About this RNA: This 92-nucleotide sequence from Leifsonia sp. Leaf336 belongs to the Rfam family "Glycine riboswitch aptamer". It scores 68 bits against the family's covariance model. Pairs were carried over by alignment from the consensus structure. Gene Ontology term of the family: glycine biosynthetic process. NCBI's taxonomy places the organism under Bacteria, Bacillati, Micrococcales, Microbacteriaceae, Leifsonia.
RNA sequence: CAGGUCGAUGCGGGAGAGUCGCGCGAAACGCGCGGCACCGAAGGAGCAAUCCUCCCCGACAAUCUCUCAGGUACGUGUACCGCAUCGGACUG
Numbered sequence: 001c002a003g004g005u006c007g008a009u010g011c012g013g014g015a016g017a018g019u020c021g022c023g024c025g026a027a028a029c030g031c032g033c034g035g036c037a038c039c040g041a042a043g044g045a046g047c048a049a050u051c052c053u054c055c056c057c058g059a060c061a062a063u064c065u066c067u068c069a070g071g072u073a074c075g076u077g078u079a080c081c082g083c084a085u086c087g088g089a090c091u092g
Base pairs, nucleotide, nucleotide: 006087007086008085009084010083011082012081013080020035021033022032037072038071039070040068041067044066045065046064050059051058